[Rfam]
RNA: Vibrio RNA AS7
RNA sequence: GGUGUUUGCAGCAGCAAAUUGCUGCGUUCUUUGAUGUCACCACCGAUGUGAUAUGGCAAGCCGCAGUUGGCAAAGGAAACGUAGGGGCCACGCUCGAACAUGAUGAUUUCAGCGUCUUCGCUGAGUCGACGCGCACGAGCCGCCGCCGAGGCUCCACCUGCAACACCAC
Numbered sequence: 001g002g003u004g005u006u007u008g009c010a011g012c013a014g015c016a017a018a019u020u021g022c023u024g025c026g027u028u029c030u031u032u033g034a035u036g037u038c039a040c041c042a043c044c045g046a047u048g049u050g051a052u053a054u055g056g057c058a059a060g061c062c063g064c065a066g067u068u069g070g071c072a073a074a075g076g077a078a079a080c081g082u083a084g085g086g087g088c089c090a091c092g093c094u095c096g097a098a099c100a101u102g103a104u105g106a107u108u109u110c111a112g113c114g115u116c117u118u119c120g121c122u123g124a125g126u127c128g129a130c131g132c133g134c135a136c137g138a139g140c141c142g143c144c145g146c147c148g149a150g151g152c153u154c155c156a157c158c159u160g161c162a163a164c165a166c167c168a169c
Stems, first nucleotide, its partner, number of pairs: 001167006008161003011025006032056001034054007060071003075155003080150001084147002086144003092140005099133001101131002104128005110123005